[Rfam]
RNA sequence: AAAACCUUAAAAAACAAAAGCCCUACCUCUCUUUUAUCAUUACGGCUCCUUGGCCGUGCCACUUAUAAUAAGGUGCUAAGUGUUUAA
Numbered sequence: 001a002a003a004a005c006c007u008u009a010a011a012a013a014a015c016a017a018a019a020g021c022c023c024u025a026c027c028u029c030u031c032u033u034u035u036a037u038c039a040u041u042a043c044g045g046c047u048c049c050u051u052g053g054c055c056g057u058g059c060c061a062c063u064u065a066u067a068a069u070a071a072g073g074u075g076c077u078a079a080g081u082g083u084u085u086a087a
Stems, first nucleotide, its partner, number of pairs: 034067001040061001041058007